RNA sequence: CCAUUCCAAUCGCUGAAUCCCAUUUUUGGGAGCGGGGGAACCACGCGUAGGGCUGGCUUCGGUCAUCCUCUACAUGGGGUGAAUCCCGGGCAAGCUUGUCCGGGUAGGGUGACUCUCAGCACCCAAACCCGUCAGCUAACCUCGUAAGCGUUAUGAGAGGAGGA
Numbered sequence: 001c002c003a004u005u006c007c008a009a010u011c012g013c014u015g016a017a018u019c020c021c022a023u024u025u026u027u028g029g030g031a032g033c034g035g036g037g038g039a040a041c042c043a044c045g046c047g048u049a050g051g052g053c054u055g056g057c058u059u060c061g062g063u064c065a066u067c068c069u070c071u072a073c074a075u076g077g078g079g080u081g082a083a084u085c086c087c088g089g090g091c092a093a094g095c096u097u098g099u100c101c102g103g104g105u106a107g108g109g110u111g112a113c114u115c116u117c118a119g120c121a122c123c124c125a126a127a128c129c130c131g132u133c134a135g136c137u138a139a140c141c142u143c144g145u146a147a148g149c150g151u152u153a154u155g156a157g158a159g160g161a162g163g164a
Stems, first nucleotide, its partner, number of pairs: 011150004018031003032145006042076002077130003085104008107124004

A member of the RNA family "c-di-AMP riboswitch aptamer (ydaO/yuaA leader)" from Lihuaxuella thermophila, 164 nucleotides long.
Lineage of the source: Bacteria > Bacillati > Caryophanales > Thermoactinomycetaceae > Lihuaxuella.
A search with the family's covariance model found it, with a score of 104 bits.